[Rfam]
Rfam assigns this 85-nucleotide RNA sequence from Mycobacterium decipiens to the family "Actinobacteria sRNA Ms_AS-8". It is annotated as a small RNA.

RNA sequence: GUUGAUUUGAGACAGGAAUUAUCAAUACCCGUCUCAGAUCAUCCUCCGCAGGGUGCGCCCACUUUCACGCCGCCUCGCCGAGGGC
Numbered sequence: 001g002u003u004g005a006u007u008u009g010a011g012a013c014a015g016g017a018a019u020u021a022u023c024a025a026u027a028c029c030c031g032u033c034u035c036a037g038a039u040c041a042u043c044c045u046c047c048g049c050a051g052g053g054u055g056c057g058c059c060c061a062c063u064u065u066c067a068c069g070c071c072g073c074c075u076c077g078c079c080g081a082g083g084g085c
Base pairs, nucleotide, nucleotide: 003041004040005039006038007037009033010032050065051064052063053062054061055060
Background:
For this family Rfam cites "Identification of small RNAs in Mycobacterium smegmatis using heterologous Hfq" (Li et al., RNA, 2013). The base pairs follow the family's consensus structure. Rfam 15.1 lists 99 matches to the family in 54 species.